[Rfam]
RNA sequence: CAGCUGUACAACGAAGCCCGGAUACUGUGUGUGUUGCGCUGUUUAGAGGUACGUAGCACCACAUGAUUCGGCUUCGUGGUGCACGCA
Number, nucleotide and partner (000 for none) at each position: 001c000002a000003g000004c000005u083006g082007u081008a080009c079010a000011a077012c076013g075014a074015a073016g072017c071018c070019c000020g069021g068022a067023u066024a000025c000026u063027g062028u061029g060030u000031g059032u058033g057034u056035u055036g054037c053038g052039c000040u000041g000042u000043u000044u000045a000046g000047a000048g000049g000050u000051a000052c038053g037054u036055a035056g034057c033058a032059c031060c029061a028062c027063a026064u000065g000066a023067u022068u021069c020070g018071g017072c016073u015074u014075c013076g012077u011078g000079g009080u008081g007082c006083a005084c000085g000086c000087a000

Shown here is an 87-nucleotide sequence from Drosophila virilis, a member of the family "mir-995 microRNA precursor family". Pairs were carried over by alignment from the consensus structure, which was predicted with RNAalifold. For this family Rfam cites "Systematic discovery and characterization of fly microRNAs using 12 Drosophila genomes" (Stark et al., Genome Res, 2007). It is one of the family's seed sequences. NCBI's taxonomy places the organism under Eukaryota, Opisthokonta, Aparaglossata, Diptera, Drosophila.